[Rfam]
RNA sequence: UUCAUUUUCAUAUAUUUUUCUCGUAUAUGUGCAGGAAUUGGCCUGCAUGUCUCUACCUGAUCACCGGAAUGAUCGGACUACGGGGUGAAACCACGGUUGU
Numbered sequence: 001u002u003c004a005u006u007u008u009c010a011u012a013u014a015u016u017u018u019u020c021u022c023g024u025a026u027a028u029g030u031g032c033a034g035g036a037a038u039u040g041g042c043c044u045g046c047a048u049g050u051c052u053c054u055a056c057c058u059g060a061u062c063a064c065c066g067g068a069a070u071g072a073u074c075g076g077a078c079u080a081c082g083g084g085g086u087g088a089a090a091c092c093a094c095g096g097u098u099g100u
Stems, first nucleotide, its partner, number of pairs: 019085007029048007057076007